[Rfam]
Rfam assigns this 116-nucleotide RNA from Pseudomonas oryzae to the family "Pseudomon-groES RNA".
Pairs were carried over by alignment from the consensus structure, which is taken from published work.
NCBI's taxonomy places the organism under Bacteria, Pseudomonadota, Gammaproteobacteria, Pseudomonadales, Pseudomonas.
Nucleotides: 116
Stems, first nucleotide, its partner, number of pairs: 010019001012017001021038002023035004049069004054064003072084004098116006
Number, partner (000 for none) and nucleotide at each position: 001000c002000u003000a004000g005000c006000c007000g008000u009000c010019a011000g012017c013000g014000c015000a016000g017012g018000a019010u020000u021038g022037c023035u024034u025033g026032a027000g028000g029000c030000a031000a032026u033025c034024g035023a036000c037022g038021c039000c040000c041000a042000g043000a044000c045000u046000u047000u048000c049069g050068c051067g052066c053000c054064g055063c056062g057000c058000c059000c060000c061000g062056c063055g064054c065000a066052g067051c068050g069049c070000u071000c072084c073083c074082g075081g076000c077000a078000a079000c080000g081075c082074c083073g084072g085000a086000a087000u088000c089000u090000a091000c092000c093000a094000a095000c096000c097000c098116g099115c100114c101113g102112g103111u104000g105000a106000a107000a108000c109000u110000c111103g112102c113101c114100g115099g116098u